[Rfam]
RNA: Bacterial large signal recognition particle RNA
RNA sequence: UCGCACUAGUCGGGGAGAUAGCGGUGCCCUGUAACCCGCAAUCCGCUACAGCGGGGAUGAAUUCCCAUACCCGGAUAAGUCACAAUACCGUCUGGCCUGCGUAAGCGGCGUUGAAGAACCGGUCUCACGCAACGGGCUCCCGUGAACCAUGUCAGGUGGGGAACCAAGCAGCAUUAAGCGGAUCCGUCCGUGUGCCGUGAGGUUGCCGUUUCCGAGCUGGCUGCGCCGGUAUCGGGUGUUGUGCUUGUUCAAAUGUGGGUGUGCGA
Numbered sequence: 001u002c003g004c005a006c007u008a009g010u011c012g013g014g015g016a017g018a019u020a021g022c023g024g025u026g027c028c029c030u031g032u033a034a035c036c037c038g039c040a041a042u043c044c045g046c047u048a049c050a051g052c053g054g055g056g057a058u059g060a061a062u063u064c065c066c067a068u069a070c071c072c073g074g075a076u077a078a079g080u081c082a083c084a085a086u087a088c089c090g091u092c093u094g095g096c097c098u099g100c101g102u103a104a105g106c107g108g109c110g111u112u113g114a115a116g117a118a119c120c121g122g123u124c125u126c127a128c129g130c131a132a133c134g135g136g137c138u139c140c141c142g143u144g145a146a147c148c149a150u151g152u153c154a155g156g157u158g159g160g161g162a163a164c165c166a167a168g169c170a171g172c173a174u175u176a177a178g179c180g181g182a183u184c185c186g187u188c189c190g191u192g193u194g195c196c197g198u199g200a201g202g203u204u205g206c207c208g209u210u211u212c213c214g215a216g217c218u219g220g221c222u223g224c225g226c227c228g229g230u231a232u233c234g235g236g237u238g239u240u241g242u243g244c245u246u247g248u249u250c251a252a253a254u255g256u257g258g259g260u261g262u263g264c265g266a
Stems, first nucleotide, its partner, number of pairs: 001266006009058003012030004017025001019023001035055005064259006073250005081243009093231002097228001099226004105221002107218003116212003120208004124201006130192002133190005140181004149174004157166003